[Rfam]
RNA sequence: CAGCCAUCCCCGGGGAGCCAAGCGGCUGAGAGGUAGGUGUCGCGCCCUACGACCCGUCGAACCUGAACCCGUUAGCACGGGCGGAGGGAAGGGCCGCUCUACGCAA
Numbered sequence: 001c002a003g004c005c006a007u008c009c010c011c012g013g014g015g016a017g018c019c020a021a022g023c024g025g026c027u028g029a030g031a032g033g034u035a036g037g038u039g040u041c042g043c044g045c046c047c048u049a050c051g052a053c054c055c056g057u058c059g060a061a062c063c064u065g066a067a068c069c070c071g072u073u074a075g076c077a078c079g080g081g082c083g084g085a086g087g088g089a090a091g092g093g094c095c096g097c098u099c100u101a102c103g104c105a106a
Base pairs, nucleotide, nucleotide: 007093008092009091011056012055013054014053017026018025019024033050034049035048036047037046062087063086064085068081069080070079071078
Record summary:
The family of this 106-nucleotide RNA from Novosphingobium sp. is "TPP riboswitch aptamer (THI element)". Rfam describes the family as follows. Vitamin B(1) in its active form thiamin pyrophosphate (TPP) is an essential coenzyme that is synthesised by coupling of pyrimidine and thiazole moieties in bacteria. Lineage of the source: Bacteria > Pseudomonadati > Pseudomonadota > Sphingomonadales > Novosphingobium. The family's consensus secondary structure is taken from published work.